[Rfam]
Rfam assigns this 93-nucleotide RNA sequence from Faunimonas pinastri to the family "sRNA-Xcc1". For this family Rfam cites "Genome-wide transcriptome analysis of the plant pathogen Xanthomonas identifies sRNAs with putative virulence functions" (Schmidtke et al., Nucleic Acids Res, 2011). The source organism's lineage runs through Bacteria, Alphaproteobacteria, Hyphomicrobiales, Afifellaceae and Faunimonas. It is annotated as a small RNA.
RNA sequence: UGCCGGGAGUCCGCCCGUUAUACAAGACCCGAAAGGGGAAGACGGUCGGGCACGUUCUCUGUGGCGUGUUCUCAGCCUCCCGGCGCCAGUGCU
Numbered sequence: 001u002g003c004c005g006g007g008a009g010u011c012c013g014c015c016c017g018u019u020a021u022a023c024a025a026g027a028c029c030c031g032a033a034a035g036g037g038g039a040a041g042a043c044g045g046u047c048g049g050g051c052a053c054g055u056u057c058u059c060u061g062u063g064g065c066g067u068g069u070u071c072u073c074a075g076c077c078u079c080c081c082g083g084c085g086c087c088a089g090u091g092c093u
Stems, first nucleotide, its partner, number of pairs: 001085009013047001015045002018042002028037003049070008
The family has 74 seed sequences and 421 matches in Rfam 15.1.